L31-Actinobacteria ribosomal protein leader: a 49-nucleotide RNA sequence from Bowdeniella nasicola. It scores 39 bits against the family's covariance model.
RNA sequence: UCGGUUCCGGUUCACCGCGCGCGGCAGCAGGCCCAGCGGACCCGGCAUC
Numbered sequence: 001u002c003g004g005u006u007c008c009g010g011u012u013c014a015c016c017g018c019g020c021g022c023g024g025c026a027g028c029a030g031g032c033c034c035a036g037c038g039g040a041c042c043c044g045g046c047a048u049c
Stems, first nucleotide, its partner, number of pairs: 003049003007045004015039004019034001021032002
The base pairs follow the family's consensus structure, which is taken from published work. Rfam classes the family as a cis-regulatory leader. For this family Rfam cites "Discovery of 20 novel ribosomal leader candidates in bacteria and archaea" (Eckert and Weinberg, BMC Microbiol, 2020). NCBI's taxonomy places the organism under Bacteria, Bacillati, Actinomycetes, Actinomycetales, Bowdeniella. The family is grouped with related families in Rfam's "Ribosomal Protein L31 Leader clan".